[Rfam]
Shown here is a 115-nucleotide RNA sequence from Cohnella abietis, a member of the family "TPP riboswitch aptamer (THI element)". Pairs were carried over by alignment from the consensus structure, which is taken from published work. The organism belongs to Cohnella, within Bacteria.
RNA sequence: AAUAAGCCCCGGGGGAGCUGGAGUAAGGCCGGCUGAGAGUGCAUCCCAUUGAAGAUGCAGACCCUUAAAACCUGAUCUGGUUAGUACCAGCGUAGGAAGGUGGGAACACGACGGA
Numbered sequence: 001a002a003u004a005a006g007c008c009c010c011g012g013g014g015g016a017g018c019u020g021g022a023g024u025a026a027g028g029c030c031g032g033c034u035g036a037g038a039g040u041g042c043a044u045c046c047c048a049u050u051g052a053a054g055a056u057g058c059a060g061a062c063c064c065u066u067a068a069a070a071c072c073u074g075a076u077c078u079g080g081u082u083a084g085u086a087c088c089a090g091c092g093u094a095g096g097a098a099g100g101u102g103g104g105a106a107c108a109c110g111a112c113g114g115a
Stems, first nucleotide, its partner, number of pairs: 007102001009100002011065004017033005040059005071096004077090004